[Rfam]
RNA: transfer-messenger RNA
Organism: Clostridium cylindrosporum
RNA sequence: AAGGCAUUCGACGGGGGUAGUAGGAGCUUAGGAAGCGAGUCGAGGACCUGUACCUCGUUAAAAACUGGGAACUUAAAUAUAAACGCAAAAAACGAAAAUUACGCAUUAGCUGCCUAGUUGCAGCUCAUCCUGCCUAGGCUUCCCACAGCUUAGGACCAGGGUGUCAAAUAAGUGGGGAAACGCGCCUGUCAAAGCUUUGAGAUAGGAACGGAAUUUAUGAAGCUACCGAAAUCUAUAGCCUGUUCUUGGGCGAUAGAUAGGGGGAAUCUCAAAACAAGAACUGCACUCGGAGAUGCUUAAGUUUUUAUGCUUUCGGACAGGGGUUCGAUUUG
Numbered sequence: 001a002a003g004g005c006a007u008u009c010g011a012c013g014g015g016g017g018u019a020g021u022a023g024g025a026g027c028u029u030a031g032g033a034a035g036c037g038a039g040u041c042g043a044g045g046a047c048c049u050g051u052a053c054c055u056c057g058u059u060a061a062a063a064a065c066u067g068g069g070a071a072c073u074u075a076a077a078u079a080u081a082a083a084c085g086c087a088a089a090a091a092a093c094g095a096a097a098a099u100u101a102c103g104c105a106u107u108a109g110c111u112g113c114c115u116a117g118u119u120g121c122a123g124c125u126c127a128u129c130c131u132g133c134c135u136a137g138g139c140u141u142c143c144c145a146c147a148g149c150u151u152a153g154g155a156c157c158a159g160g161g162u163g164u165c166a167a168a169u170a171a172g173u174g175g176g177g178a179a180a181c182g183c184g185c186c187u188g189u190c191a192a193a194g195c196u197u198u199g200a201g202a203u204a205g206g207a208a209c210g211g212a213a214u215u216u217a218u219g220a221a222g223c224u225a226c227c228g229a230a231a232u233c234u235a236u237a238g239c240c241u242g243u244u245c246u247u248g249g250g251c252g253a254u255a256g257a258u259a260g261g262g263g264g265a266a267u268c269u270c271a272a273a274a275c276a277a278g279a280a281c282u283g284c285a286c287u288c289g290g291a292g293a294u295g296c297u298u299a300a301g302u303u304u305u306u307a308u309g310c311u312u313u314c315g316g317a318c319a320g321g322g323g324u325u326c327g328a329u330u331u332g
Base pairs, nucleotide, nucleotide: 012315013314014313015312016311017310018309019308024304025303026302027301028300029299030298031297032296034294036289037288038287039286040285041057042056043055044054045053047069048068049067050066108125109124110123111122112121113120126163127162128161129160130159131158133154134153135152136151137150138149139148140147141177142176143175144174145173146172181210182209185206186205187204188203189202193224194223195222196221197220198219226263227262231258232257233256234255235254238251239250240249242281243280244279245278247274323331